RNA sequence: GGGUGUUAGCACUGCAGUGUCGCAGUGAAACAGGUUAAUGCGUUGGUCGGGCCGCCACG
Numbered sequence: 001g002g003g004u005g006u007u008a009g010c011a012c013u014g015c016a017g018u019g020u021c022g023c024a025g026u027g028a029a030a031c032a033g034g035u036u037a038a039u040g041c042g043u044u045g046g047u048c049g050g051g052c053c054g055c056c057a058c059g
Stems, first nucleotide, its partner, number of pairs: 005031003009026002041059003045056003